Rfam assigns this 99-nucleotide RNA from Hibiscus trionum to the family "Small nucleolar RNA Z157/R69/R10". A reference for the family is Chen et al. (2003), "The high diversity of snoRNAs in plants: identification and comparative study of 120 snoRNA genes from Oryza sativa", Nucleic Acids Res. Its Rfam clan is "SNORD52 clan". Pairs were carried over by alignment from the consensus structure, which was predicted with PFOLD. Rfam classes the family as a C/D-box small nucleolar RNA.
RNA sequence: UAGAUUGCAGUGAUGAAGCAAUUUUAUUUUGGACUAGAGUUUCUGAUCUGGGUUUUCCCCAGAAGUUGAAGACUAACCCUUGGCUGUCUGACUAACCUU
Numbered sequence: 001u002a003g004a005u006u007g008c009a010g011u012g013a014u015g016a017a018g019c020a021a022u023u024u025u026a027u028u029u030u031g032g033a034c035u036a037g038a039g040u041u042u043c044u045g046a047u048c049u050g051g052g053u054u055u056u057c058c059c060c061a062g063a064a065g066u067u068g069a070a071g072a073c074u075a076a077c078c079c080u081u082g083g084c085u086g087u088c089u090g091a092c093u094a095a096c097c098u099u
Stems, first nucleotide, its partner, number of pairs: 002098002005095003040071004047064001048062005